[Rfam]
RNA sequence: UUUGCUGGGAUGACGACUUUGACGUAAAGUGUUCAUCGUCAAAGUCUGAAUUAAGAGAGCAAA
Numbered sequence: 001u002u003u004g005c006u007g008g009g010a011u012g013a014c015g016a017c018u019u020u021g022a023c024g025u026a027a028a029g030u031g032u033u034c035a036u037c038g039u040c041a042a043a044g045u046c047u048g049a050a051u052u053a054a055g056a057g058a059g060c061a062a063a
Stems, first nucleotide, its partner, number of pairs: 001063005015046010029036002

The family of this 63-nucleotide RNA from Exaiptasia diaphana is "Selenocysteine insertion sequence 1". The family's consensus secondary structure is taken from published work.